[Rfam]
RNA sequence: AAUCACUACUAGGGGUGCCAUAUAGAAUUGGCUGAGAGAGCAGUAGCUUAACCCUCUAACUUGAUACAGUUCGCACUGUCGUAAGGAAGAAGUGACAUUUUUAG
Numbered sequence: 001a002a003u004c005a006c007u008a009c010u011a012g013g014g015g016u017g018c019c020a021u022a023u024a025g026a027a028u029u030g031g032c033u034g035a036g037a038g039a040g041c042a043g044u045a046g047c048u049u050a051a052c053c054c055u056c057u058a059a060c061u062u063g064a065u066a067c068a069g070u071u072c073g074c075a076c077u078g079u080c081g082u083a084a085g086g087a088a089g090a091a092g093u094g095a096c097a098u099u100u101u102u103a104g
Stems, first nucleotide, its partner, number of pairs: 006092002009089002011055004017032004039048003060085004066079004
This 104-nucleotide sequence from Kurthia sp. 11kri321 belongs to the Rfam family "TPP riboswitch aptamer (THI element)".
The base pairs follow the family's consensus structure, which is taken from published work.
Gene Ontology term of the family: thiamine pyrophosphate binding.
Vitamin B(1) in its active form thiamin pyrophosphate (TPP) is an essential coenzyme that is synthesised by coupling of pyrimidine and thiazole moieties in bacteria.